A member of the RNA family "c-di-GMP-I riboswitch aptamer" from Clostridiales bacterium PH28_bin88, 89 nucleotides long.
RNA sequence: CUCGGAAAAAGGAAAAAUUACCGAAAGGUAAUGGCUCAAAGCUACAGGGCCUAAAGCCGGCCGACCGGCUAUGGCAGCCAGCUGCCCAU
Numbered sequence: 001c002u003c004g005g006a007a008a009a010a011g012g013a014a015a016a017a018u019u020a021c022c023g024a025a026a027g028g029u030a031a032u033g034g035c036u037c038a039a040a041g042c043u044a045c046a047g048g049g050c051c052u053a054a055a056g057c058c059g060g061c062c063g064a065c066c067g068g069c070u071a072u073g074g075c076a077g078c079c080a081g082c083u084g085c086c087c088a089u
Base pairs, nucleotide, nucleotide: 012037013036017032018031019030020029021028022027040083041082042081043080047079048078049075050074051073056069057068058067059066